[Rfam]
RNA sequence: UGCCGUCGCCCUCCUUGGGCGUUUCCUCCCUAGACUUGGGCCGCUCCUCCGGGACGCGGCCCUUUCUUUUUUCUGCA
Numbered sequence: 001u002g003c004c005g006u007c008g009c010c011c012u013c014c015u016u017g018g019g020c021g022u023u024u025c026c027u028c029c030c031u032a033g034a035c036u037u038g039g040g041c042c043g044c045u046c047c048u049c050c051g052g053g054a055c056g057c058g059g060c061c062c063u064u065u066c067u068u069u070u071u072u073c074u075g076c077a
Stems, first nucleotide, its partner, number of pairs: 008020004038062007045054002